[Rfam]
RNA sequence: CGUAUACUUCAGGGCAGGGUGAAAUUCCCGAUCGGCGGUAAACUCCGCGAGCGAAAGCAGGAACUGGUGUGAUUCCAGUAGCGACAGUAAAGUCUGGAUAGAAGAAGUGUUAA
Numbered sequence: 001c002g003u004a005u006a007c008u009u010c011a012g013g014g015c016a017g018g019g020u021g022a023a024a025u026u027c028c029c030g031a032u033c034g035g036c037g038g039u040a041a042a043c044u045c046c047g048c049g050a051g052c053g054a055a056a057g058c059a060g061g062a063a064c065u066g067g068u069g070u071g072a073u074u075c076c077a078g079u080a081g082c083g084a085c086a087g088u089a090a091a092g093u094c095u096g097g098a099u100a101g102a103a104g105a106a107g108u109g110u111u112a113a
Base pairs, nucleotide, nucleotide: 004110005109006108007107008106009105010104017029018028019027031093032092033083034082035048036047037046038045043081044080063079064078065077066076067075085096086095087094
A member of the RNA family "FMN riboswitch aptamer (RFN element)" from an Erysipelotrichia bacterium, 113 nucleotides long. Pairs were carried over by alignment from the consensus structure, which is taken from published work. The source organism's lineage runs through Bacteria, Bacillati, Bacillota and Erysipelotrichia. Its family is annotated with FMN binding in the Gene Ontology.